[Rfam]
RNA sequence: GCCGGGAGUCGGGCGGACGUGAUCGUCGCGAACCGGGUCAGGUCCUGACGGAAGCAGCCACAGUGAUUUCGUCACGGGUCGUUCCGGCUCCUACAUUU
Numbered sequence: 001g002c003c004g005g006g007a008g009u010c011g012g013g014c015g016g017a018c019g020u021g022a023u024c025g026u027c028g029c030g031a032a033c034c035g036g037g038u039c040a041g042g043u044c045c046u047g048a049c050g051g052a053a054g055c056a057g058c059c060a061c062a063g064u065g066a067u068u069u070c071g072u073c074a075c076g077g078g079u080c081g082u083u084c085c086g087g088c089u090c091c092u093a094c095a096u097u098u
Base pairs, nucleotide, nucleotide: 004092005091006090007089008088011084012083013082014081015080018076019075020074021073022072023071025067026066027065028064029063036059037058038057043052044051045050